[Rfam]
The record is a 302-nucleotide RNA from Momordica charantia, which matches "Plant signal recognition particle RNA" in Rfam.
Lineage of the source: Eukaryota > Streptophyta > rosids > Cucurbitales > Momordica.
The base pairs follow the family's consensus structure, which is taken from published work.

RNA sequence: GCCGGGCUUGGUAACACAGGCUUGUAACCCAAGUGGGGGCAACAACGUGGUUGAAGGUUGCGCUGAUCCAUUGGGCCAGGCUUUGAAGAUUUCUUCUGGCCCGCCCAUUUCAAGAUUGGAGCUGGGCUUUGAAUCUUGGGUGAAGGCCCAUGGUGCUCUGCCCCUAGAUCGGAAGAGACCGCAUGAGGCUGGCUUCACAGAGCAGUGUUACCUCCAAUUCUAGUCAGUGAAAGGAUAACGGGCCGGUACUUCGUAAGCCCAAUUGGGCCCAAUGGGAAGCUCUAAACUCGACAACCACCUUU
Number, nucleotide and partner (000 for none) at each position: 001g040002c039003c038004g023005g022006g021007c020008u019009u018010g017011g000012u000013a000014a000015c000016a000017c010018a009019g008020g007021c006022u005023u004024g000025u000026a000027a000028c037029c036030c035031a000032a000033g000034u000035g030036g029037g028038g003039g002040c001041a000042a000043c000044a301045a300046c000047g298048u297049g296050g295051u294052u293053g292054a000055a000056g289057g288058u285059u284060g283061c000062g280063c279064u278065g000066a000067u000068c275069c274070a273071u272072u271073g270074g269075g268076c267077c266078a000079g259080g258081c257082u256083u255084u000085g000086a251087a250088g249089a000090u248091u000092u000093c000094u000095u000096c246097u245098g244099g243100c242101c241102c240103g239104c000105c234106c233107a000108u232109u231110u230111c229112a228113a000114g225115a224116u223117u222118g221119g220120a219121g218122c000123u000124g163125g162126g161127c160128u000129u000130u000131g156132a000133a154134u153135c152136u000137u150138g149139g148140g147141u146142g000143a000144a000145g000146g141147c140148c139149c138150a137151u000152g135153g134154u133155g000156c131157u000158c000159u000160g127161c126162c125163c124164c000165u000166a000167g000168a000169u000170c000171g215172g214173a213174a000175g211176a000177g000178a000179c000180c000181g208182c207183a206184u205185g000186a000187g000188g000189c200190u199191g198192g000193c000194u000195u000196c000197a000198c191199a190200g189201a000202g000203c000204a000205g184206u183207g182208u181209u000210a000211c175212c000213u173214c172215c171216a000217a000218u121219u120220c119221u118222a117223g116224u115225c114226a000227g000228u112229g111230a110231a109232a108233g106234g105235a000236u000237a000238a000239c103240g102241g101242g100243c099244c098245g097246g096247u000248a090249c088250u087251u086252c000253g000254u000255a083256a082257g081258c080259c079260c000261a000262a000263u000264u000265g000266g077267g076268c075269c074270c073271a072272a071273u070274g069275g068276g000277a000278a064279g063280c062281u000282c000283u060284a059285a058286a000287c000288u057289c056290g000291a000292c053293a052294a051295c050296c049297a048298c047299c000300u045301u044302u000
The family's RNA type in Rfam is non-coding RNA gene.